A member of the RNA family "terC RNA" from Sphingomonas xinjiangensis, 61 nucleotides long. Rfam 15.1 lists 1,112 matches to the family in 772 species.
[Rfam]
RNA sequence: UGAGCGGACCGGGCCCCUCUGGCGCUCGUCUUUUGGACGAACGUGAUGUCGGACCGCAUCG
Numbered sequence: 001u002g003a004g005c006g007g008a009c010c011g012g013g014c015c016c017c018u019c020u021g022g023c024g025c026u027c028g029u030c031u032u033u034u035g036g037a038c039g040a041a042c043g044u045g046a047u048g049u050c051g052g053a054c055c056g057c058a059u060c061g
Stems, first nucleotide, its partner, number of pairs: 006055002009052004022044003026040004
By type it is a cis-regulatory element. It scores 58 bits against the family's covariance model.